[Rfam]
RNA sequence: UUCUUAUCAAGAGCAGGUGGAGGGACGAGCCCGAUGAAGCCCGGCAACCGACCUGGAUUUUUUCCAGGCACGGUGCUAAUUCUUGCAGCAUUCGCUGAAAGAUAAGGA
Numbered sequence: 001u002u003c004u005u006a007u008c009a010a011g012a013g014c015a016g017g018u019g020g021a022g023g024g025a026c027g028a029g030c031c032c033g034a035u036g037a038a039g040c041c042c043g044g045c046a047a048c049c050g051a052c053c054u055g056g057a058u059u060u061u062u063u064c065c066a067g068g069c070a071c072g073g074u075g076c077u078a079a080u081u082c083u084u085g086c087a088g089c090a091u092u093c094g095c096u097g098a099a100a101g102a103u104a105a106g107g108a
Base pairs, nucleotide, nucleotide: 001108002107003106004105005104006103007102008101013042016041017040018039022032023031024030026085027084028083029082043077044076045075046074048073049072050069052067081100086097087096088095089094
Dot-bracket structure: ((((((((....(..(((...(((.[[[[)))......))))((((.(((.(..............).)..))))))...(]]]]((((....))))..)))))))))